[Rfam]
Shown here is a 43-nucleotide sequence from Jeotgalibacillus sp. S-D1, a member of the family "Ribosomal protein L19 leader". It scores 46 bits against the family's covariance model. Taxonomically the source falls in Jeotgalibacillus (Bacteria, Bacillati, Bacillota, Bacilli). The base pairs follow the family's consensus structure, which was predicted with CMfinder. This family is a putative r-protein leader autoregulatory structure found in B. subtilis and other low-GC Gram-positive bacteria. It is annotated as a cis-regulatory leader.
RNA sequence: ACGGUGUUCCGCUGCUCAGGCAAUAGUGAGGCAAGAGCAUCUG
Numbered sequence: 001a002c003g004g005u006g007u008u009c010c011g012c013u014g015c016u017c018a019g020g021c022a023a024u025a026g027u028g029a030g031g032c033a034a035g036a037g038c039a040u041c042u043g
Stems, first nucleotide, its partner, number of pairs: 003041007013033002015030004